[Rfam]
RNA sequence: AUAAUAUGAACGCUUAAUUCUCUUAUGGAGAAGCGGGGGAAACGAACUAUAACUAUAGGGGUGAAACGAUUUAAGUCGGGUUACCUUACGAUCCGAACCCAACAACUAACCUCGUAAGCGUAGUAAGGAUGUUAG
Dot-bracket structure: ..........((((...(((.........)))((((((....(..............)(((.....(.......)..((((.........))))...))).........)))))).))))...............

Description: Shown here is a 135-nucleotide RNA sequence from Syntrophomonas zehnderi, a member of the family "c-di-AMP riboswitch aptamer (ydaO/yuaA leader)". The organism belongs to Syntrophomonas zehnderi, within Bacteria. A search with the family's covariance model found it, with a score of 74 bits. This family represents a conserved RNA structure found upstream of the ydaO and yuaA genes in Bacillus subtilis and related genes in other bacteria.